[Rfam]
RNA sequence: AAUAGGAGAAUGACAAAUCAGACUUUUCCUCCUGAUUUUUAGCUUUUUUCUCUUGAAAAAAAAUUCAAAUCCAACUAAAAAUGCCAAAAAUCAAAAAGGAAAAAUCUGAUUUGUCAUUCUCCUAUU
Number, nucleotide and partner (000 for none) at each position: 001a126002a125003u124004a123005g122006g121007a120008g119009a118010a117011u116012g115013a114014c113015a112016a111017a110018u109019c108020a107021g106022a105023c000024u102025u101026u100027u099028c000029c000030u096031c000032c000033u093034g092035a091036u090037u089038u088039u087040u000041a000042g084043c000044u000045u081046u080047u079048u078049u000050c000051u000052c000053u000054u000055g000056a000057a000058a000059a000060a000061a000062a000063a000064u000065u000066c000067a000068a000069a000070u000071c000072c000073a000074a000075c000076u000077a000078a048079a047080a046081a045082u000083g000084c042085c000086a000087a039088a038089a037090a036091u035092c034093a033094a000095a000096a030097a000098g000099g027100a026101a025102a024103a000104a000105u022106c021107u020108g019109a018110u017111u016112u015113g014114u013115c012116a011117u010118u009119c008120u007121c006122c005123u004124a003125u002126u001
This 126-nucleotide RNA from Gossypium hirsutum belongs to the Rfam family "MIR7504 microRNA precursor family". The match comes from Rfam's covariance-model search (112 bits).